[Rfam]
RNA sequence: GGGAUGUGAUGAGUGGUCAAUGCUCGCACUAAAUAUGCGAGAUGGGUGUUCGCCCCAAGCCUGUUACGAGAAUUGGACACUCCCAUUUUCACCAAUUUGAUCCC
Dot-bracket structure: ((((.........((((.....(((((.........)))))..(((((((..........(.((.......)).))))))))........))))......))))
Record summary: Rfam assigns this 104-nucleotide RNA sequence from Olea europaea to the family "Small nucleolar RNA Z279/snoR105/snoR108". NCBI's taxonomy places the organism under Eukaryota, Streptophytina, lamiids, Olea, Olea europaea. Rfam 15.1 lists 906 matches to the family in 223 species. This family includes the plant snoRNAs known as Z279, snoR105 and snoR108. Pairs were carried over by alignment from the consensus structure, which was predicted with PFOLD. A reference for the family is Marker et al. (2002), "Experimental RNomics: identification of 140 candidates for small non-messenger RNAs in the plant Arabidopsis thaliana", Curr Biol. It scores 86 bits against the family's covariance model. Rfam classes the family as a C/D-box small nucleolar RNA.